[Rfam]
RNA sequence: GGCAAGAUGGCCGAGUGGUUAAGGCGGUAGACUCAAGCGAUUCAAAGCUUCACCAUUUAAAUAAGUUGGUGUUUUCUACUCUCGCAAGAGGCGUGGGUUCGAGUCCCACUCUUGUCA
Numbered sequence: 001g002g003c004a005a006g007a008u009g010g011c012c013g014a015g016u017g018g019u020u021a022a023g024g025c026g027g028u029a030g031a032c033u034c035a036a037g038c039g040a041u042u043c044a045a046a047g048c049u050u051c052a053c054c055a056u057u058u059a060a061a062u063a064a065g066u067u068g069g070u071g072u073u074u075u076c077u078a079c080u081c082u083c084g085c086a087a088g089a090g091g092c093g094u095g096g097g098u099u100c101g102a103g104u105c106c107c108a109c110u111c112u113u114g115u116c117a
Base pairs, nucleotide, nucleotide: 001116002115003114004113005112006111007110010025011024012023027079028078029077030076031075093109094108095107096106097105